[Rfam]
RNA: SAM riboswitch aptamer (S box leader)
RNA sequence: UUGUUAUCAAGAAAGGUGAAGGGAUUAGACCCGUUGAAACCUUAGCAACCCUCUAUCCAAGUAGAGAAGGUGCUACGUUCUACCCAUAUGUUUGAAGAUUCAUACAGGGGAAAGAUAACCA
Numbered sequence: 001u002u003g004u005u006a007u008c009a010a011g012a013a014a015g016g017u018g019a020a021g022g023g024a025u026u027a028g029a030c031c032c033g034u035u036g037a038a039a040c041c042u043u044a045g046c047a048a049c050c051c052u053c054u055a056u057c058c059a060a061g062u063a064g065a066g067a068a069g070g071u072g073c074u075a076c077g078u079u080c081u082a083c084c085c086a087u088a089u090g091u092u093u094g095a096a097g098a099u100u101c102a103u104a105c106a107g108g109g110g111a112a113a114g115a116u117a118a119c120c121a
Stems, first nucleotide, its partner, number of pairs: 001121001003119006013043005021032003026082004044074004049070002051066004078113001083110003087106001